[Rfam]
RNA sequence: GCCCUUACAUUUCCGGCUGAUGACAUCUAUAUCGGCGCUGCCGCCUUCGGGCGGAGAUGGUGAUGAAUGAUGCCGUACCAGUACUCACAGCGGACCCGGGGGCAGUACCCGGCGGCUCCACCAAAAGCCCCGAUUUUCGGGGCCUCUGACGGGGCCGAACCAGGAUAGACGUGUGCGGAACGACGGUAUUUUUGCCCGGCCUGAAAACGCCGUUAAACUGUUCAAAACCUACAAAUGCCAACGAUAACGAGGCAUUUGCGAUUGCUGCGUAACCUGUUGGGCUAACGCCCUUGGUUAUUAAGCUUGAGCAGGGUUCGGGCCGAACCCGGUAACAGAAUCGGAUUCC
Numbered sequence: 001g002c003c004c005u006u007a008c009a010u011u012u013c014c015g016g017c018u019g020a021u022g023a024c025a026u027c028u029a030u031a032u033c034g035g036c037g038c039u040g041c042c043g044c045c046u047u048c049g050g051g052c053g054g055a056g057a058u059g060g061u062g063a064u065g066a067a068u069g070a071u072g073c074c075g076u077a078c079c080a081g082u083a084c085u086c087a088c089a090g091c092g093g094a095c096c097c098g099g100g101g102g103c104a105g106u107a108c109c110c111g112g113c114g115g116c117u118c119c120a121c122c123a124a125a126a127g128c129c130c131c132g133a134u135u136u137u138c139g140g141g142g143c144c145u146c147u148g149a150c151g152g153g154g155c156c157g158a159a160c161c162a163g164g165a166u167a168g169a170c171g172u173g174u175g176c177g178g179a180a181c182g183a184c185g186g187u188a189u190u191u192u193u194g195c196c197c198g199g200c201c202u203g204a205a206a207a208c209g210c211c212g213u214u215a216a217a218c219u220g221u222u223c224a225a226a227a228c229c230u231a232c233a234a235a236u237g238c239c240a241a242c243g244a245u246a247a248c249g250a251g252g253c254a255u256u257u258g259c260g261a262u263u264g265c266u267g268c269g270u271a272a273c274c275u276g277u278u279g280g281g282c283u284a285a286c287g288c289c290c291u292u293g294g295u296u297a298u299u300a301a302g303c304u305u306g307a308g309c310a311g312g313g314u315u316c317g318g319g320c321c322g323a324a325c326c327c328g329g330u331a332a333c334a335g336a337a338u339c340g341g342a343u344u345c346c
Base pairs, nucleotide, nucleotide: 041054042053043052044051059196060195061194062193063192070189071188072187073186074185075184076183086175087174088173090172091171092170096112097111098110099109100108113157114156115155116154117153118152119151197212198211199210200209202224203223204222206221311327312326313325314324317344318343320341321340

Alphaproteobacteria transfer-messenger RNA: a 346-nucleotide sequence from Sandaracinobacter neustonicus. A reference for the family is Laslett et al. (2002), "BRUCE: a program for the detection of transfer-messenger RNA genes in nucleotide sequences", Nucleic Acids Res. Pairs were carried over by alignment from the consensus structure, which is taken from published work. The match comes from Rfam's covariance-model search (198 bits). Clan: tRNA clan. Lineage of the source: Bacteria > Alphaproteobacteria > Sphingomonadales > Sphingosinicellaceae > Sandaracinobacter.